[Rfam]
RNA sequence: GCCAUCUUGUGGUGAAGCGGUCUUCGCGCUGGAUUUCAACUCCAGUUUGGUCUAUGACCCCCAGUUCAACUCUGGCUGGAUGGC
Numbered sequence: 001g002c003c004a005u006c007u008u009g010u011g012g013u014g015a016a017g018c019g020g021u022c023u024u025c026g027c028g029c030u031g032g033a034u035u036u037c038a039a040c041u042c043c044a045g046u047u048u049g050g051u052c053u054a055u056g057a058c059c060c061c062c063a064g065u066u067c068a069a070c071u072c073u074g075g076c077u078g079g080a081u082g083g084c
Stems, first nucleotide, its partner, number of pairs: 001084007009076001012027006028046006049059004061075004